The family of this 91-nucleotide RNA from Histoplasma capsulatum is "A. fumigatus snoRNA Afu_263".
RNA sequence: UUUCGUGAUGAUCCAAAAUUUAUAAGCAUAGUUCAACUGAAGAUCUCCGGAUCCUGAACGAUAAACAUUUCCAUCUUUCAUUUUCCUGAAC
Numbered sequence: 001u002u003u004c005g006u007g008a009u010g011a012u013c014c015a016a017a018a019u020u021u022a023u024a025a026g027c028a029u030a031g032u033u034c035a036a037c038u039g040a041a042g043a044u045c046u047c048c049g050g051a052u053c054c055u056g057a058a059c060g061a062u063a064a065a066c067a068u069u070u071c072c073a074u075c076u077u078u079c080a081u082u083u084u085c086c087u088g089a090a091c
Base pairs, nucleotide, nucleotide: 006018009015010014031059032058033057034056035055042053043052044051045050
Dot-bracket structure: .....(..((...))..)............(((((......((((....)))).)))))................................

For this family Rfam cites "Small ncRNA transcriptome analysis from Aspergillus fumigatus suggests a novel mechanism for regulation of protein synthesis" (Jochl et al., Nucleic Acids Res, 2008). Lineage of the source: Eukaryota > Opisthokonta > Eurotiomycetes > Onygenales > Histoplasma capsulatum var. duboisii. Gene Ontology terms of the family: nucleolus and RNA processing. Its Rfam clan is "SNORD77 clan". The family's RNA type in Rfam is C/D-box small nucleolar RNA.